[Rfam]
Rfam assigns this 91-nucleotide RNA from Natronoglycomyces albus to the family "Glycine riboswitch aptamer". Pairs were carried over by alignment from the consensus structure. A search with the family's covariance model found it, with a score of 72 bits.
RNA sequence: AAAUUCCGCUCGGGAGAGCUCGCAGUUUGGCGGCACCGAAGGGGCAAUGACCUCCUCAGAACCUCUCAGGUACCCGGACCGGGCGGACUGG
Numbered sequence: 001a002a003a004u005u006c007c008g009c010u011c012g013g014g015a016g017a018g019c020u021c022g023c024a025g026u027u028u029g030g031c032g033g034c035a036c037c038g039a040a041g042g043g044g045c046a047a048u049g050a051c052c053u054c055c056u057c058a059g060a061a062c063c064u065c066u067c068a069g070g071u072a073c074c075c076g077g078a079c080c081g082g083g084c085g086g087a088c089u090g091g
Stems, first nucleotide, its partner, number of pairs: 006086008020033004035071003038067002042065003048058002